[Rfam]
Background
Rfam assigns this 79-nucleotide RNA sequence from Anas platyrhynchos to the family "mir-16 microRNA precursor family". Rfam 15.1 lists 4,705 matches to the family in 758 species.

RNA sequence: GCCUUACUUCAGCAGCACAGUUAAUACUGGAGAUAUUUACAGUCUUAACACCAAUAUUUACGUGCUGCUAGAGUAUGAC
Numbered sequence: 001g002c003c004u005u006a007c008u009u010c011a012g013c014a015g016c017a018c019a020g021u022u023a024a025u026a027c028u029g030g031a032g033a034u035a036u037u038u039a040c041a042g043u044c045u046u047a048a049c050a051c052c053a054a055u056a057u058u059u060a061c062g063u064g065c066u067g068c069u070a071g072a073g074u075a076u077g078a079c
Stems, first nucleotide, its partner, number of pairs: 001079001003077001005075003011069008021060001023058004028053003